[Rfam]
RNA sequence: UGGUGCCCAACAUAACAGCUGGAUACUGGGGGCACAUCCUGAGGGAGACGACGGAGGAAAAGGAGUGCACUCACUAAAUCUCAAGGAAUUCGGAGACGCGCCGCAGGAGCCUGCCGCGACCAAACCGAAGGUAAGUUGUGCCAUCCGAUAAUGGGGCAAGAAUUGAGCCAGCAUCAGAUUUAUGUCAAGCAAUUGAGAGAGGCACUAAAGACAGGAGGAGUAAAGGUUAGGACUGCAGAUUUAUUUCAUUUCUUUGAUUUUGUAAAGGACAUUUGUCCCU
Numbered sequence: 001u002g003g004u005g006c007c008c009a010a011c012a013u014a015a016c017a018g019c020u021g022g023a024u025a026c027u028g029g030g031g032g033c034a035c036a037u038c039c040u041g042a043g044g045g046a047g048a049c050g051a052c053g054g055a056g057g058a059a060a061a062g063g064a065g066u067g068c069a070c071u072c073a074c075u076a077a078a079u080c081u082c083a084a085g086g087a088a089u090u091c092g093g094a095g096a097c098g099c100g101c102c103g104c105a106g107g108a109g110c111c112u113g114c115c116g117c118g119a120c121c122a123a124a125c126c127g128a129a130g131g132u133a134a135g136u137u138g139u140g141c142c143a144u145c146c147g148a149u150a151a152u153g154g155g156g157c158a159a160g161a162a163u164u165g166a167g168c169c170a171g172c173a174u175c176a177g178a179u180u181u182a183u184g185u186c187a188a189g190c191a192a193u194u195g196a197g198a199g200a201g202g203c204a205c206u207a208a209a210g211a212c213a214g215g216a217g218g219a220g221u222a223a224a225g226g227u228u229a230g231g232a233c234u235g236c237a238g239a240u241u242u243a244u245u246u247c248a249u250u251u252c253u254u255u256g257a258u259u260u261u262g263u264a265a266a267g268g269a270c271a272u273u274u275g276u277c278c279c280u
Base pairs, nucleotide, nucleotide: 006032007031008030012027013025014024037051038050040048090131091130092126093125098121102118103117104116106114139158140157141156144155145154146153147152164207165206167203168202169201215255216254217253218252219251220250224242225241226240227239228238265280267278268277269276270275

This 280-nucleotide RNA from Nannospalax galili belongs to the Rfam family "Mason-Pfizer monkey virus packaging signal". The match comes from Rfam's covariance-model search (161 bits). NCBI's taxonomy places the organism under Eukaryota, Teleostomi, Tetrapoda, Glires, Nannospalax.